Overview
c-di-AMP riboswitch aptamer (ydaO/yuaA leader): a 137-nucleotide sequence from Calothrix sp. NIES-3974. This family represents a conserved RNA structure found upstream of the ydaO and yuaA genes in Bacillus subtilis and related genes in other bacteria. NCBI's taxonomy places the organism under Bacteria, Bacillati, Cyanophyceae, Nostocales, Calothrix.
[Rfam]
RNA sequence: AUUAAAAUAUUGUCAGUAAUCCUGGAACGGAGGAACCAUUGUUUGGGGCAAACCUGAAGGUUGCACUGCAACAAAAAGGAGAGUAUCUCUCAACUCUAGCCCGUCAGCUAACUUCGUAGGCAUUGAGAGGAACCAAA
Number, nucleotide and partner (000 for none) at each position: 001a000002u000003u000004a000005a000006a000007a000008u000009a000010u000011u122012g121013u120014c119015a000016g000017u000018a000019a000020u026021c025022c000023u000024g000025g021026a020027a117028c116029g115030g114031a113032g112033g000034a000035a000036c000037c045038a044039u000040u000041g000042u000043u000044u038045g037046g102047g101048g100049c000050a000051a000052a000053c000054c078055u077056g000057a000058a000059g000060g000061u000062u000063g000064c000065a000066c000067u000068g000069c000070a000071a000072c000073a000074a000075a000076a000077a055078g054079g000080a000081g096082a095083g094084u093085a000086u000087c000088u000089c000090u000091c000092a000093a084094c083095u082096c081097u000098a000099g000100c048101c047102c046103g000104u000105c000106a000107g000108c000109u000110a000111a000112c032113u031114u030115c029116g028117u027118a000119g014120g013121c012122a011123u000124u000125g000126a000127g000128a000129g000130g000131a000132a000133c000134c000135a000136a000137a000